[Rfam]
RNA sequence: AGGUCAUUUUAAAGAGACUUAUGGGACCCAAACCAGGAGCUCUUAACGCUGGGACCGAAGAUUGAAGUUUUCUGUAGGAUGUAGCAGGCACUGACCAGUGCUGUCUUCCUGAGGAGAUAUAAGA
Number, nucleotide and partner (000 for none) at each position: 001a000002g056003g055004u054005c053006a000007u051008u000009u000010u000011a000012a000013a000014g044015a043016g042017a041018c039019u038020u037021a000022u036023g000024g000025g034026a000027c000028c000029c000030a000031a000032a000033c000034c025035a000036g022037g020038a019039g018040c000041u017042c016043u015044u014045a000046a000047c000048g000049c000050u000051g007052g000053g005054a004055c003056c002057g000058a000059a000060g000061a000062u000063u000064g000065a000066a000067g000068u000069u117070u116071u115072c114073u113074g000075u000076a110077g109078g108079a107080u000081g000082u000083a000084g104085c103086a102087g101088g000089c100090a099091c098092u097093g000094a000095c000096c000097a092098g091099u090100g089101c087102u086103g085104u084105c000106u000107u079108c078109c077110u076111g000112a000113g073114g072115a071116g070117a069118u000119a000120u000121a000122a000123g000124a000
This 124-nucleotide sequence from Phyllostomus discolor belongs to the Rfam family "Small nucleolar RNA SNORA25". About the family: ACA25 is a member of the H/ACA class of snoRNA that guide the sites of modification of uridines to pseudouridines. Lineage of the source: Eukaryota > Opisthokonta > Teleostomi > Tetrapoda > Phyllostomus. The family's consensus secondary structure was predicted with RNAfold. The family has 30 seed sequences and 1,129 matches in Rfam 15.1. It is annotated as an H/ACA-box small nucleolar RNA. It scores 95 bits against the family's covariance model. Its family is annotated with RNA processing and nucleolus in the Gene Ontology.